[Rfam]
RNA: Metazoan signal recognition particle RNA
RNA sequence: GCCGGGUUCAGUGGCGCGCGCCUGUAAUCCAAGCUACUGGGAGGCUGAGGUUGCGGAUUGCUUGAGCUCAGGGCUUCUGGACUGCAGUGGACUAUGUUGAUCGGGUGUCCACACUAAGUUCGGUAUUGAUAUGGUGCUCCUGGGGGAGCUUGGGACCACCAGGUCGUGUAAUGAGGGGUGAACCGGCCCAGGUUGGCGACGGAGCAGGUCAAAUCCCCCGUGCUGAUCAGUAGUGGGAUCACACCUGACAAUAGACACUGCAGUGCAGCCUGAGUGACACAG
Number, nucleotide and partner (000 for none) at each position: 001g045002c044003c043004g023005g022006g021007u020008u000009c018010a000011g000012u000013g000014g000015c000016g000017c000018g009019c000020g007021c006022c005023u004024g000025u000026a000027a000028u042029c041030c040031a000032a000033g000034c000035u000036a000037c000038u000039g000040g030041g029042a028043g003044g002045c001046u000047g000048a000049g000050g000051u000052u000053g000054c000055g000056g000057a000058u000059u000060g000061c282062u281063u000064g000065a000066g275067c274068u273069c272070a271071g270072g269073g000074c000075u000076u000077c268078u267079g266080g000081a264082c263083u262084g261085c260086a259087g258088u257089g256090g000091a000092c254093u253094a252095u251096g000097u000098u000099g000100a000101u248102c247103g246104g245105g244106u243107g242108u241109c237110c236111a000112c235113a234114c233115u232116a231117a000118g228119u000120u226121c225122g224123g223124u222125a221126u220127u166128g165129a164130u163131a000132u161133g160134g159135u158136g157137c000138u155139c154140c153141u152142g151143g150144g149145g000146g000147a000148g000149c144150u143151u142152g141153g140154g139155a138156c000157c136158a135159c134160c133161a132162g000163g130164u129165c128166g127167u173168g172169u000170a000171a000172u168173g167174a000175g218176g217177g216178g215179u000180g000181a000182a000183c000184c000185g210186g209187c208188c207189c000190a000191g000192g000193u202194u201195g200196g000197c000198g000199a000200c195201g194202g193203a000204g000205c000206a000207g188208g187209u186210c185211a000212a000213a000214u000215c178216c177217c176218c175219c000220g126221u125222g124223c123224u122225g121226a120227u000228c118229a000230g000231u116232a115233g114234u113235g112236g110237g109238a000239u000240c000241a108242c107243a106244c105245c104246u103247g102248a101249c000250a000251a095252u094253a093254g092255a000256c089257a088258c087259u086260g085261c084262a083263g082264u081265g000266c079267a078268g077269c072270c071271u070272g069273a068274g067275u066276g000277a000278c000279a000280c000281a062282g061